About this RNA:
Rfam assigns this 67-nucleotide sequence from Candidula unifasciata to the family "mir-33 microRNA precursor family". Pairs were carried over by alignment from the consensus structure, which was predicted with PFOLD. The match comes from Rfam's covariance-model search (58 bits). Rfam 15.1 lists 1,467 matches to the family in 815 species. Lineage of the source: Eukaryota > Bilateria > Heterobranchia > Helicina > Candidula. A reference for the family is Li et al. (2009), "Direct sequencing and expression analysis of a large number of miRNAs in Aedes aegypti and a multi-species survey of novel mosquito miRNAs", BMC Genomics.
[Rfam]
RNA sequence: UUAUGGUGCAUUGUAGUUGCAUUGCCUUGGUAGUUGAAGCAGCAAUGCCUCUGCAGUGCAAACAUGA
Numbered sequence: 001u002u003a004u005g006g007u008g009c010a011u012u013g014u015a016g017u018u019g020c021a022u023u024g025c026c027u028u029g030g031u032a033g034u035u036g037a038a039g040c041a042g043c044a045a046u047g048c049c050u051c052u053g054c055a056g057u058g059c060a061a062a063c064a065u066g067a
Stems, first nucleotide, its partner, number of pairs: 001067004006063001007060010019048001021046005